[Rfam]
RNA: tRNA
Organism: Calditerricola satsumensis
RNA sequence: GUACCCGUAGCUCAGCUGGGAGAGCGCCACCUUGACGCGGUGGAGGUCACAGGUUCGAGCCCUGUCGGGUACA
Numbered sequence: 001g002u003a004c005c006c007g008u009a010g011c012u013c014a015g016c017u018g019g020g021a022g023a024g025c026g027c028c029a030c031c032u033u034g035a036c037g038c039g040g041u042g043g044a045g046g047u048c049a050c051a052g053g054u055u056c057g058a059g060c061c062c063u064g065u066c067g068g069g070u071a072c073a
Base pairs, nucleotide, nucleotide: 001072002071003070004069005068006067007066010025011024012023013022027043028042029041030040031039049065050064051063052062053061